Rfam assigns this 147-nucleotide RNA sequence from Metapseudomonas furukawaii to the family "proV RNA".

RNA sequence: CGUCGCUGUCGGUUCCCGUGGAUCGACAGACCGUGGGCACUCCGCCCCGGACCGAAUAACACAAGCGGCAGCCUCCCCCCGAGUCGAGGCUGGCCUAAUAAGAAAUUUCGGAAGUACGCGCACCUCCGGUCGAGGUGCAGAACCCGC
Dot-bracket structure: .....(((((((.(((...)))))))))).(((.((((.....)))))))....................................................................((((((((.....))))))).).......
Pairs were carried over by alignment from the consensus structure, which is taken from published work. Taxonomically the source falls in Metapseudomonas (Bacteria, Pseudomonadota, Pseudomonadales, Pseudomonadaceae).